[Rfam]
RNA sequence: GUUGAUCCUAGUAACGUGGGCUUGUGACUCAUUUGGGAGCAUCAAAUUAGUGGAAUAAGUGCUUGAAUUGGUUGGUUGGGACUUGGGCCUGCAAUUGCAACUUGCUGGCCUGCCCAUUCCAAGUUGAGAGUUAGCUCAUGUAACCUGGGCCAAGGCCCAAGUUCUAUGAGCCCUAGAGAGGAGGAUACUGUGUUAGGCUGGCUUCACAGAGCAACGUCUACUUUCCGCUCCUAACAGUGGAAGGAUAACAGGCGGCUGCUUCACUGGCCAAGAUAGCCCAAGCAUUCCAAUAUGCUUGAACCACUAAUUUU
Number, nucleotide and partner (000 for none) at each position: 001g040002u039003u038004g023005a022006u000007c020008c019009u018010a017011g000012u000013a000014a000015c000016g000017u010018g009019g008020g007021c000022u005023u004024g000025u000026g000027a000028c037029u036030c035031a000032u000033u000034u000035g030036g029037g028038a003039g002040c001041a000042u000043c000044a310045a309046a308047u307048u306049a305050g304051u303052g302053g301054a000055a000056u298057a297058a000059g295060u294061g293062c000063u290064u289065g288066a000067a286068u000069u000070g000071g000072u000073u284074g283075g000076u281077u280078g279079g000080g278081a000082c276083u275084u000085g000086g269087g268088c267089c266090u000091g264092c000093a000094a000095u000096u000097g259098c000099a000100a257101c000102u000103u000104g000105c000106u255107g000108g253109c252110c251111u250112g249113c000114c244115c243116a000117u242118u241119c240120c239121a238122a000123g235124u234125u233126g232127a000128g230129a229130g228131u227132u000133a000134g171135c170136u169137c168138a167139u166140g165141u000142a163143a162144c161145c000146u159147g158148g157149g156150c155151c000152a000153a000154g000155g150156c149157c148158c147159a146160a000161g144162u143163u142164c000165u140166a139167u138168g137169a136170g135171c134172c000173c178174u000175a000176g000177a000178g173179a000180g225181g224182a223183g222184g221185a000186u000187a000188c000189u000190g217191u216192g215193u214194u000195a000196g000197g000198c209199u208200g207201g000202c000203u000204u000205c000206a000207c200208a199209g198210a000211g000212c000213a000214a193215c192216g191217u190218c000219u000220a000221c184222u183223u182224u181225c180226c000227g131228c130229u129230c128231c000232u126233a125234a124235c123236a000237g000238u121239g120240g119241a118242a117243g115244g114245a000246u000247a000248a000249c112250a111251g110252g109253c108254g000255g106256c000257u100258g000259c097260u000261u000262c000263a000264c091265u000266g089267g088268c087269c086270a000271a000272g000273a000274u000275a083276g082277c000278c080279c078280a077281a076282g000283c074284a073285u000286u067287c000288c065289a064290a063291u000292a000293u061294g060295c059296u000297u057298g056299a000300a000301c053302c052303a051304c050305u049306a048307a047308u046309u045310u044311u000